[Rfam]
RNA sequence: UAUAAAUGUGAUGAAUUGCACACUCGCAGAGUCAUAGUAUUAGGGGAUGCAGGCAGUGUUUCUUACUUUCCCGAGGAGAGAAAUGCACAGGUGCCACUCAGUCAUCAU
Dot-bracket structure: .....(((.............(...(((..(((...(((((....))))).)))..)))....)......................................)))...
Description:
The family of this 108-nucleotide sequence from Colobus angolensis is "Small nucleolar RNA SNORD67". A reference for the family is Huttenhofer et al. (2001), "RNomics: an experimental approach that identifies 201 candidates for novel, small, non-messenger RNAs in mouse", EMBO J. It is annotated as a C/D-box small nucleolar RNA. Lineage of the source: Eukaryota > Dipnotetrapodomorpha > Tetrapoda > Simiiformes > Colobus angolensis. Gene Ontology terms of the family: RNA processing and nucleolus.